The family of this 46-nucleotide RNA sequence from Odocoileus virginianus is "Histone 3' UTR stem-loop". From the family's description: The mRNAs of metazoan histone genes lack a poly-A tail. 3' end processing occurs at a site between a highly conserved stem-loop (modelled by this family) and a purine rich region around 20 nts downstream (the histone downstream element, or HDE). The family's consensus secondary structure is taken from published work.
RNA sequence: CAAAAGGCUCUUUUCAGAGCCACCCACGCUUUCAAAUAAAGGGUUG
Numbered sequence: 001c002a003a004a005a006g007g008c009u010c011u012u013u014u015c016a017g018a019g020c021c022a023c024c025c026a027c028g029c030u031u032u033c034a035a036a037u038a039a040a041g042g043g044u045u046g
Stems, first nucleotide, its partner, number of pairs: 006021006